[Rfam]
RNA: PyrR binding site
Nucleotides: 115
Base pairs, nucleotide, nucleotide: 004036006034007033008032009031013030014029015028016027017026018025045076046075048073050071051070053068054067055066056065057064079110082107083106084105085104086103087102088101089100090099091098092097
Number, partner (000 for none) and nucleotide at each position: 001000u002000a003000u004036g005000c006034c007033u008032u009031u010000a011000a012000u013030u014029u015028g016027g017026u018025c019000c020000u021000g022000u023000g024000a025018g026017g027016c028015c029014a030013g031009a032008a033007a034006g035000a036004c037000u038000c039000g040000g041000g042000c043000a044000a045076u046075c047000u048073u049000c050071a051070u052000a053068c054067u055066c056065u057064g058000c059000u060000c061000u062000u063000u064057u065056a066055g067054g068053g069000a070051g071050u072000u073048a074000c075046g076045a077000u078000g079110a080000u081000u082107a083106u084105a085104c086103u087102c088101a089100u090099g091098u092097c093000u094000u095000c096000u097092g098091g099090c100089g101088u102087g103086a104085g105084u106083a107082u108000u109000u110079u111000u112000u113000u114000g115000u